[Rfam]
RNA: Molybdenum/Tungsten riboswitch aptamer (Moco RNA motif)
Nucleotides: 120
Base pairs, nucleotide, nucleotide: 003114011106012105013104014103015102016101019056020055021054022053023052025050026049027048028047029046034042035041061086062085063084064083065082066081067080069078070077071076087097088096
Number, partner (000 for none) and nucleotide at each position: 001000u002000u003114u004000a005000c006000a007000c008000a009000a010000a011106u012105u013104u014103u015102c016101c017000g018000a019056g020055c021054u022053u023052a024000a025050u026049u027048u028047u029046c030000u031000a032000a033000a034042g035041c036000u037000u038000u039000a040000u041035g042034c043000c044000a045000u046029g047028a048027a049026a050025a051000a052023u053022a054021a055020g056019c057000c058000g059000c060000u061086g062085g063084g064083u065082a066081u067080a068000a069078g070077g071076a072000g073000a074000a075000a076071u077070c078069c079000c080067u081066a082065u083064a084063c085062c086061u087097c088096c089000c090000g091000u092000g093000u094000u095000u096088g097087g098000a099000a100000a101016g102015g103014a104013a105012g106011a107000u108000u109000a110000u111000a112000a113000a114003a115000c116000c117000a118000u119000a120000a